[Rfam]
This 124-nucleotide sequence from Salsuginibacillus halophilus belongs to the Rfam family "PyrR binding site". Taxonomically the source falls in Salsuginibacillus (Bacteria, Bacillati, Bacilli, Caryophanales). Its family is annotated with pyrimidine nucleobase biosynthetic process and pyrimidine nucleobase transport in the Gene Ontology. Pairs were carried over by alignment from the consensus structure, which is taken from published work. This family represents the PyrR binding site and terminator structure. This RNA structure is found upstream of a variety of genes involved in pyrimidine biosynthesis and transport. The alignment also includes a portion of the antiterminator structure.
RNA sequence: AAGUCCUUUAACGUCAGUCCUGUGAGGCUGAGAAGGAACGGAGAUGACCACGCAGCAGGCGUGGUCUGCAUGACUAAGUGAUGUCUCCAUCCUCUCGUCUUGUACAGGCGGGGGGAUGUUUUAU
Number, nucleotide and partner (000 for none) at each position: 001a000002a000003g000004u037005c036006c035007u034008u033009u032010a000011a000012c000013g000014u031015c030016a029017g028018u027019c026020c000021u000022g000023u000024g000025a000026g019027g018028c017029u016030g015031a014032g009033a008034a007035g006036g005037a004038a000039c000040g000041g000042a000043g000044a000045u000046g066047a065048c064049c063050a062051c061052g060053c059054a000055g000056c000057a000058g000059g053060c052061g051062u050063g049064g048065u047066c046067u000068g000069c000070a000071u000072g000073a000074c000075u000076a000077a000078g000079u000080g000081a000082u000083g000084u000085c000086u000087c000088c118089a117090u116091c115092c114093u113094c112095u111096c110097g109098u108099c107100u106101u000102g000103u000104a000105c000106a100107g099108g098109c097110g096111g095112g094113g093114g092115g091116a090117u089118g088119u000120u000121u000122u000123a000124u000